[Rfam]
RNA: Bacterial RNase P class A
RNA sequence: CCAGAGGGUCGGGCGGCCGCGGCUCCUGCUAUGCAGGGGGCGAGGAAAGUCCGGGCUCCACGGAAAAACGGUGCCGGGUAACGCCCGGCGGGGUGCGCAAGCGCUUCAGGGACAGUGCCACAGAGAGCAGACCGCCACGCUUCGGCGCGGCAAGGGUGAAAGGGUGCGGUAAGAGCGCACCGCGGGACCGGCAACGGAACCGGCAUGGUAAACCCCACCGGGAGCAAGACCGAAUAGGGGCGGCACAUGGGCCUUUUUCCGGCCCGUCGCCCGGGUUGGUUGCUUGAGGCGCGGAGCAAUCCGCGUCCUAGAGGAAUGGCCGCACAGCCCGCGCAAGCGGGUGGACUGAACCCGGCUUACAGACCCUCUGGCAUU
Numbered sequence: 001c002c003a004g005a006g007g008g009u010c011g012g013g014c015g016g017c018c019g020c021g022g023c024u025c026c027u028g029c030u031a032u033g034c035a036g037g038g039g040g041c042g043a044g045g046a047a048a049g050u051c052c053g054g055g056c057u058c059c060a061c062g063g064a065a066a067a068a069c070g071g072u073g074c075c076g077g078g079u080a081a082c083g084c085c086c087g088g089c090g091g092g093g094u095g096c097g098c099a100a101g102c103g104c105u106u107c108a109g110g111g112a113c114a115g116u117g118c119c120a121c122a123g124a125g126a127g128c129a130g131a132c133c134g135c136c137a138c139g140c141u142u143c144g145g146c147g148c149g150g151c152a153a154g155g156g157u158g159a160a161a162g163g164g165u166g167c168g169g170u171a172a173g174a175g176c177g178c179a180c181c182g183c184g185g186g187a188c189c190g191g192c193a194a195c196g197g198a199a200c201c202g203g204c205a206u207g208g209u210a211a212a213c214c215c216c217a218c219c220g221g222g223a224g225c226a227a228g229a230c231c232g233a234a235u236a237g238g239g240g241c242g243g244c245a246c247a248u249g250g251g252c253c254u255u256u257u258u259c260c261g262g263c264c265c266g267u268c269g270c271c272c273g274g275g276u277u278g279g280u281u282g283c284u285u286g287a288g289g290c291g292c293g294g295a296g297c298a299a300u301c302c303g304c305g306u307c308c309u310a311g312a313g314g315a316a317u318g319g320c321c322g323c324a325c326a327g328c329c330c331g332c333g334c335a336a337g338c339g340g341g342u343g344g345a346c347u348g349a350a351c352c353c354g355g356c357u358u359a360c361a362g363a364c365c366c367u368c369u370g371g372c373a374u375u
Base pairs, nucleotide, nucleotide: 001371002370003369004368005367006366007365008364009363010362011360013323014322015321016320017319018318020042021041023039024038025037026036027035028034047358048357049356051355052354053353054352055351056224057223058222059221064258065257066256067255069220070219071218072217073216074088075087076086077085078084089109090107091106092105093104094103095102096101110215111214115213116212117209118208119207132155133154134151135150136149138147139146140145163181164180165179166178167177168176182204183202184201185200188197189196190195228281229280230279231278238272239271240270241269242268243267249265250264251263252262253261288307289306290305291304292303293302294301295300